The family of this 132-nucleotide sequence from Hipposideros armiger is "Small nucleolar RNA SNORA9". The family is grouped with related families in Rfam's "SNORA9 clan". Pairs were carried over by alignment from the consensus structure, which was predicted with PFOLD. The family has 36 seed sequences and 1,202 matches in Rfam 15.1. Rfam's curators write: ACA9 is a member of the H/ACA class of snoRNA that guide the sites of modification of uridines to pseudouridines. The organism belongs to Hipposideros, within Eukaryota.
[Rfam]
RNA sequence: CUGCAAGCCUCCAGUGUGCUUGGGUCUGUGGUGACCCUGCGCAUUCCUACAGUGCUUGCAAGAACAUUUAGAAACGGUUUGAGGCCUUGCCCUGCUGCAUCCAGAGCAAGGUUAUAGAAAUCUCAGACAGUU
Numbered sequence: 001c002u003g004c005a006a007g008c009c010u011c012c013a014g015u016g017u018g019c020u021u022g023g024g025u026c027u028g029u030g031g032u033g034a035c036c037c038u039g040c041g042c043a044u045u046c047c048u049a050c051a052g053u054g055c056u057u058g059c060a061a062g063a064a065c066a067u068u069u070a071g072a073a074a075c076g077g078u079u080u081g082a083g084g085c086c087u088u089g090c091c092c093u094g095c096u097g098c099a100u101c102c103a104g105a106g107c108a109a110g111g112u113u114a115u116a117g118a119a120a121u122c123u124c125a126g127a128c129a130g131u132u
Stems, first nucleotide, its partner, number of pairs: 003059006017043003022037005071124002074121001085111006092104003